[Rfam]
RNA sequence: UUGCAAAUAUUCGUGCUGUUCUGAUUUUGUAAUAAUCAGGGCAGGCUAAACAUUCACUAUAUUAAGACCAUGCAUGUCCCCAGACCUAGUUCUUUGCCUAGGUCUGGUUUUCUCAGUUGUGGUGGGAAAC
Numbered sequence: 001u002u003g004c005a006a007a008u009a010u011u012c013g014u015g016c017u018g019u020u021c022u023g024a025u026u027u028u029g030u031a032a033u034a035a036u037c038a039g040g041g042c043a044g045g046c047u048a049a050a051c052a053u054u055c056a057c058u059a060u061a062u063u064a065a066g067a068c069c070a071u072g073c074a075u076g077u078c079c080c081c082a083g084a085c086c087u088a089g090u091u092c093u094u095u096g097c098c099u100a101g102g103u104c105u106g107g108u109u110u111u112c113u114c115a116g117u118u119g120u121g122g123u124g125g126g127a128a129a130c
Stems, first nucleotide, its partner, number of pairs: 003057001016044011067123004080107010
RNA: Small nucleolar RNA SNORA72
Organism: Felis catus